Record summary:
A member of the RNA family "Archaeal RNase P" from Halanaeroarchaeum sulfurireducens, 326 nucleotides long. Ribonuclease P (RNase P) is a ubiquitous endoribonuclease, found in archaea, bacteria and eukarya as well as chloroplasts and mitochondria. Its best characterised activity is the generation of mature 5'-ends of tRNAs by cleaving the 5'-leader elements of precursor-tRNAs. Cellular RNase Ps are ribonucleoproteins. For this family Rfam cites "The Ribonuclease P Database" (Brown, Nucleic Acids Res, 1999). Gene Ontology terms of the family: ribonuclease P activity, tRNA processing and multimeric ribonuclease P complex.
[Rfam]
RNA sequence: GGCAGCGGACGCCCGGCCCCCGUGCAACAGCGCAUGAGGAAAGUCCCCCCACCGUCGGGCAGGCGACCGGGUGCAAACCCGGGGCGGGAGACCGUGGGGCCCUGGAACAGAAACGACACGUCUCCGUCAGACCGAUGCGGUGUGCGACUCCGGGCCGAGUUUCGACGAGGACCGGGACGUUAACCCACCGAGGGACGACGACGGAGGACCGAUGGAACGGCCAUCCCUCGCCGGUGCAAGUCCGCGCGGGUAAGGUAGCCCGACGAGCGCGCGGAUGCUCAGCCGAAUGCCGGGUCGAAACAGAAGGGGGCUUACGAUCCGCAGCC
Numbered sequence: 001g002g003c004a005g006c007g008g009a010c011g012c013c014c015g016g017c018c019c020c021c022g023u024g025c026a027a028c029a030g031c032g033c034a035u036g037a038g039g040a041a042a043g044u045c046c047c048c049c050c051a052c053c054g055u056c057g058g059g060c061a062g063g064c065g066a067c068c069g070g071g072u073g074c075a076a077a078c079c080c081g082g083g084g085c086g087g088g089a090g091a092c093c094g095u096g097g098g099g100c101c102c103u104g105g106a107a108c109a110g111a112a113a114c115g116a117c118a119c120g121u122c123u124c125c126g127u128c129a130g131a132c133c134g135a136u137g138c139g140g141u142g143u144g145c146g147a148c149u150c151c152g153g154g155c156c157g158a159g160u161u162u163c164g165a166c167g168a169g170g171a172c173c174g175g176g177a178c179g180u181u182a183a184c185c186c187a188c189c190g191a192g193g194g195a196c197g198a199c200g201a202c203g204g205a206g207g208a209c210c211g212a213u214g215g216a217a218c219g220g221c222c223a224u225c226c227c228u229c230g231c232c233g234g235u236g237c238a239a240g241u242c243c244g245c246g247c248g249g250g251u252a253a254g255g256u257a258g259c260c261c262g263a264c265g266a267g268c269g270c271g272c273g274g275a276u277g278c279u280c281a282g283c284c285g286a287a288u289g290c291c292g293g294g295u296c297g298a299a300a301c302a303g304a305a306g307g308g309g310g311c312u313u314a315c316g317a318u319c320c321g322c323a324g325c326c
Stems, first nucleotide, its partner, number of pairs: 001326003005322005010316002012294006021036005041313003045310005050236004058261002062232005067082005084095004097227002103223003119211002122206007140188002240276009